A member of the RNA family "RAGATH-18 RNA", 63 nucleotides long. Rfam's curators write: Actinobacteria, Firmicutes, Fusobacteria, Thermotogae (1 example). Rfam's curators put it in the seed alignment.

RNA sequence: CCUUUGGAGAAUCAUAUCAAACGAAAGUAGCUACGGCAAAAUACGGAUUCAAUGAAGAAGGAA
Numbered sequence: 001c002c003u004u005u006g007g008a009g010a011a012u013c014a015u016a017u018c019a020a021a022c023g024a025a026a027g028u029a030g031c032u033a034c035g036g037c038a039a040a041a042u043a044c045g046g047a048u049u050c051a052a053u054g055a056a057g058a059a060g061g062a063a
Base pairs, nucleotide, nucleotide: 001061002060003059004058005057009050010049011048012047013046022045023044030037031036